[Rfam]
RNA sequence: UCAGGAAUUAAAUAUCCGCUGUAGAUAGCAGGUGCCGUUAGGCUUAAUUUCCUGCCGAGGUUGGAAAACGUGCCGAAAGAUAUACUUGGCAUUCUUAACCUCUGCAGCUGCGGAGGUUUUUUGCUGAGUUG
Numbered sequence: 001u002c003a004g005g006a007a008u009u010a011a012a013u014a015u016c017c018g019c020u021g022u023a024g025a026u027a028g029c030a031g032g033u034g035c036c037g038u039u040a041g042g043c044u045u046a047a048u049u050u051c052c053u054g055c056c057g058a059g060g061u062u063g064g065a066a067a068a069c070g071u072g073c074c075g076a077a078a079g080a081u082a083u084a085c086u087u088g089g090c091a092u093u094c095u096u097a098a099c100c101u102c103u104g105c106a107g108c109u110g111c112g113g114a115g116g117u118u119u120u121u122u123g124c125u126g127a128g129u130u131g
Stems, first nucleotide, its partner, number of pairs: 028055005034043003099116007
RNA: Ribosomal protein L10 leader
Organism: Desulfosporosinus acididurans